The record is a 61-nucleotide RNA sequence from Nocardia nova, which matches "Actino-pnp RNA" in Rfam.
RNA sequence: GUCGGUCUUCGGUAGUGGCCUUUCGACGAGAGUUGUCGGCGGGCUUCGAUCGAUGACCGCC
Numbered sequence: 001g002u003c004g005g006u007c008u009u010c011g012g013u014a015g016u017g018g019c020c021u022u023u024c025g026a027c028g029a030g031a032g033u034u035g036u037c038g039g040c041g042g043g044c045u046u047c048g049a050u051c052g053a054u055g056a057c058c059g060c061c
Stems, first nucleotide, its partner, number of pairs: 001061001003059005009053005017045005023039007

NCBI's taxonomy places the organism under Bacteria, Actinomycetota, Actinomycetes, Mycobacteriales, Nocardia nova. It is annotated as a cis-regulatory element.